[Rfam]
About this RNA
This 95-nucleotide RNA sequence from Lutimaribacter saemankumensis belongs to the Rfam family "TPP riboswitch aptamer (THI element)". NCBI's taxonomy places the organism under Bacteria, Pseudomonadati, Alphaproteobacteria, Rhodobacterales, Lutimaribacter.
RNA sequence: UCAGUGCAACAGGGGCGUCCGCAUCCGCGGGCUGAGAAGCACCCUUGGAACCUGAACCGGAUCAUGCCGGCGUAGGAAGUUGCGAUUGGUCCCGC
Numbered sequence: 001u002c003a004g005u006g007c008a009a010c011a012g013g014g015g016c017g018u019c020c021g022c023a024u025c026c027g028c029g030g031g032c033u034g035a036g037a038a039g040c041a042c043c044c045u046u047g048g049a050a051c052c053u054g055a056a057c058c059g060g061a062u063c064a065u066g067c068c069g070g071c072g073u074a075g076g077a078a079g080u081u082g083c084g085a086u087u088g089g090u091c092c093c094g095c
Stems, first nucleotide, its partner, number of pairs: 006083005011045004016039001017032005051076004057070004